[Rfam]
RT-2 RNA: a 188-nucleotide RNA sequence from Collinsella sp. An271.
RNA sequence: GCGCGUCAGAGGAAGGAGAUGCCGACGGUCGGGCUUAUGCCCGUGAACAUGCGCCCCGCGGCCGCCGCCGUUCGCUUCUUGCAUGGCCCGGCUUCUCGGCACCCGACCGGGUUUCAUGGCCGGCGGCCAAGCGGAUGCAGGAUGCCGCUUAAGAUCCGCGCGGGGCGCCCUCUAUGAACAGCGAUGAG
Numbered sequence: 001g002c003g004c005g006u007c008a009g010a011g012g013a014a015g016g017a018g019a020u021g022c023c024g025a026c027g028g029u030c031g032g033g034c035u036u037a038u039g040c041c042c043g044u045g046a047a048c049a050u051g052c053g054c055c056c057c058g059c060g061g062c063c064g065c066c067g068c069c070g071u072u073c074g075c076u077u078c079u080u081g082c083a084u085g086g087c088c089c090g091g092c093u094u095c096u097c098g099g100c101a102c103c104c105g106a107c108c109g110g111g112u113u114u115c116a117u118g119g120c121c122g123g124c125g126g127c128c129a130a131g132c133g134g135a136u137g138c139a140g141g142a143u144g145c146c147g148c149u150u151a152a153g154a155u156c157c158g159c160g161c162g163g164g165g166c167g168c169c170c171u172c173u174a175u176g177a178a179c180a181g182c183g184a185u186g187a188g
Stems, first nucleotide, its partner, number of pairs: 030043004051168008061127007068119002074082002085113007131159005

The family's consensus secondary structure is taken from published work. It is annotated as a small RNA.